[Rfam]
RNA: mir-181 microRNA precursor family
Nucleotides: 082
Base pairs, nucleotide, nucleotide: 003081004079005078007076008075014069015068016067017066018065019064020063021062022061025060026059027058028057029056030055031054033053034052035051036050
Number, partner (000 for none) and nucleotide at each position: 001000a002000g003081g004079u005078u006000u007076c008075a009000g010000u011000g012000a013000a014069c015068a016067u017066u018065c019064a020063a021062c022061g023000c024000u025060g026059u027058c028057g029056g030055u031054g032000a033053g034052u035051u036050u037000u038000c039000u040000c041000a042000a043000u044000a045000a046000g047000g048000u049000u050036a051035a052034a053033c054031c055030a056029u057028c058027g059026a060025c061022c062021g063020u064019u065018g066017a067016g068015u069014g070000u071000a072000c073000c074000c075008u076007g077000c078005g079004g080000c081003c082000g